[Rfam]
RNA: Group II catalytic intron D1-D4-1
RNA sequence: CGGCAUUGCUUGUGAAGGUGGUGUUGACGGGGCAGAAGUCAGCAGAGGUCGUAGUACCGGCGGGAAUGUGGUGUUUGUCGGGAAGGGC
Numbered sequence: 001c002g003g004c005a006u007u008g009c010u011u012g013u014g015a016a017g018g019u020g021g022u023g024u025u026g027a028c029g030g031g032g033c034a035g036a037a038g039u040c041a042g043c044a045g046a047g048g049u050c051g052u053a054g055u056a057c058c059g060g061c062g063g064g065a066a067u068g069u070g071g072u073g074u075u076u077g078u079c080g081g082g083a084a085g086g087g088c
Base pairs, nucleotide, nucleotide: 001026002025004023005022006021007020008019009018010017011016039046040045048088049087050086057081058080059079060078061077062076063075064074